Selenocysteine insertion sequence 1: a 64-nucleotide RNA sequence from Laticauda laticaudata. Rfam describes the family as follows. The incorporation of selenocysteine into a protein sequence is directed by an in-frame UGA codon (usually a stop codon) within the coding region of the mRNA. Selenoprotein mRNAs contain a conserved secondary structure in the 3' UTR that is required for the distinction of UGA stop from UGA selenocysteine. The selenocysteine insertion sequence (SECIS) is around 60 nt in length and adopts a hairpin structure which is sufficiently well-defined and conserved to act as a computational screen for selenoprotein genes. Taxonomically the source falls in Laticauda (Eukaryota, Vertebrata, Teleostomi, Amniota). The family's consensus secondary structure is taken from published work.
[Rfam]
RNA sequence: UUUGCAUUCAUGAAAACAGGAGCAAAAACUAUGACCUAGGGGCUUCUGUUUGAUACGGAGCAAA
Numbered sequence: 001u002u003u004g005c006a007u008u009c010a011u012g013a014a015a016a017c018a019g020g021a022g023c024a025a026a027a028a029c030u031a032u033g034a035c036c037u038a039g040g041g042g043c044u045u046c047u048g049u050u051u052g053a054u055a056c057g058g059a060g061c062a063a064a
Base pairs, nucleotide, nucleotide: 001064002063003062004061005060015050016049017048018047019046020045021044022043023042029039030038031037
Dot-bracket structure: (((((.........(((((((((.....(((.....)))..))))))))).........)))))